[Rfam]
RNA sequence: GGUCGGCGACGGACGUGCUCCUCGCCAACCCGGUCAGGUCCGGAAGGAAGCAGCCGUAACGAGUUCUCGCGCGGGUCGACCGCCGAUCUUC
Numbered sequence: 001g002g003u004c005g006g007c008g009a010c011g012g013a014c015g016u017g018c019u020c021c022u023c024g025c026c027a028a029c030c031c032g033g034u035c036a037g038g039u040c041c042g043g044a045a046g047g048a049a050g051c052a053g054c055c056g057u058a059a060c061g062a063g064u065u066c067u068c069g070c071g072c073g074g075g076u077c078g079a080c081c082g083c084c085g086a087u088c089u090u091c
Base pairs, nucleotide, nucleotide: 001088002087003086004085005084006081008080010078011077014073015072016071017070018069021063022062023061024060031056032055033054034053039048040047041046
Bacterial small signal recognition particle RNA: a 91-nucleotide RNA sequence from Falsiroseomonas stagni. Rfam's curators write: The signal recognition particle (SRP) is a universally conserved ribonucleoprotein involved in the co-translational targeting of proteins to membranes. The family's consensus secondary structure is taken from published work. Taxonomically the source falls in Falsiroseomonas stagni (Bacteria, Pseudomonadati, Pseudomonadota, Acetobacterales).